[Rfam]
RNA sequence: GGUUUGUAGGCAGUGUCAUUAGCUGAUUGUACUGUGGUGGUUAACAAUCACUAACUCCACUGCCAUCAAAAC
Numbered sequence: 001g002g003u004u005u006g007u008a009g010g011c012a013g014u015g016u017c018a019u020u021a022g023c024u025g026a027u028u029g030u031a032c033u034g035u036g037g038u039g040g041u042u043a044a045c046a047a048u049c050a051c052u053a054a055c056u057c058c059a060c061u062g063c064c065a066u067c068a069a070a071a072c
Base pairs, nucleotide, nucleotide: 003070004069005068006067009064010063012061013060014059015058019054020053021052022051024050025049026048027047028046029045030044
RNA: mir-34 microRNA precursor family